RNA sequence: AUGAAACAUUUUUCUCGGCAGUUAACUGCAGCCGGUUUUUUAUUUCUCGACAGUUAACUGCCGAGGGACAA
Numbered sequence: 001a002u003g004a005a006a007c008a009u010u011u012u013u014c015u016c017g018g019c020a021g022u023u024a025a026c027u028g029c030a031g032c033c034g035g036u037u038u039u040u041u042a043u044u045u046c047u048c049g050a051c052a053g054u055u056a057a058c059u060g061c062c063g064a065g066g067g068a069c070a071a
Stems, first nucleotide, its partner, number of pairs: 012067002015064014

A member of the RNA family "MIR2629 microRNA precursor family" from Medicago truncatula, 71 nucleotides long. Rfam links the family to the GO terms miRNA-mediated post-transcriptional gene silencing and RISC complex. It scores 61 bits against the family's covariance model. The family's consensus secondary structure was predicted with RNAalifold. NCBI's taxonomy places the organism under Eukaryota, Spermatophyta, Mesangiospermae, Pentapetalae, Medicago.